[Rfam]
RNA: Group II catalytic intron D1-D4-6
Organism: Desulforamulus profundi
RNA sequence: GGAAUCCCACUGAGAAAGGUUUAGCCAACCACUCAAAGCGAGUCUUGGAACACAGGGGUAACCCCUGUAUUUAAGCGUAGACAGCUAGGUAGCAGGCCGAAAGCGAAAGCUGAAGGGAUUGAGCUCCGAAAUCCUAGAACGGGAAGGCCGAUGCUGUGAGCCAGGCAGAAGGCAAUAUCACAACAAACGCUAUGGCGAGUCUGUUGGGCUCGAUUCAACCC
Dot-bracket structure: ..........((((...(((([.[[.)))).))))..((..(((((((((.((((((....)).)))).)))...)).)))).))..........................................(............(((((((((..((((........))))...))).....(.(((((.((......]].])).))))).).)...)))..)))